[Rfam]
RNA sequence: GCGCUGAUCGGUAACCAGCGCCUGACUAAUAAGGAG
Numbered sequence: 001g002c003g004c005u006g007a008u009c010g011g012u013a014a015c016c017a018g019c020g021c022c023u024g025a026c027u028a029a030u031a032a033g034g035a036g
Stems, first nucleotide, its partner, number of pairs: 001021006008014001
Background: Shown here is a 36-nucleotide RNA, a member of the family "L31-Coriobacteria ribosomal protein leader". A reference for the family is Eckert and Weinberg (2020), "Discovery of 20 novel ribosomal leader candidates in bacteria and archaea", BMC Microbiol. The family's consensus secondary structure is taken from published work.